Overview:
A member of the RNA family "Group II catalytic intron D1-D4-2" from Micromonospora deserti, 118 nucleotides long. Taxonomically the source falls in Micromonospora (Bacteria, Actinomycetota, Actinomycetes, Micromonosporales). Group II introns are found in rRNA, tRNA and mRNA of organelles in fungi, plants and protists, and also in mRNA in bacteria.
[Rfam]
RNA sequence: GAAGGUUGGCCCUUCGAAGUCGCCUUUCGGGAGGAGGCUUCAAACCGCCACAUGCUGCGUUGGCUGAAGACCGUCGUGUGUGUGGGCAGCCGCCGCCGUUAGACUCCGCGCGUGAUGG
Numbered sequence: 001g002a003a004g005g006u007u008g009g010c011c012c013u014u015c016g017a018a019g020u021c022g023c024c025u026u027u028c029g030g031g032a033g034g035a036g037g038c039u040u041c042a043a044a045c046c047g048c049c050a051c052a053u054g055c056u057g058c059g060u061u062g063g064c065u066g067a068a069g070a071c072c073g074u075c076g077u078g079u080g081u082g083u084g085g086g087c088a089g090c091c092g093c094c095g096c097c098g099u100u101a102g103a104c105u106c107c108g109c110g111c112g113u114g115a116u117g118g
Base pairs, nucleotide, nucleotide: 001015002014003013004012005011016041017040018039019038020037021036023034024033025032026031045118046117048085049084050083051082052081053080054079055078057077058076059075061073062072063071091114092113093112

Rfam links the family to the GO term Group II intron splicing.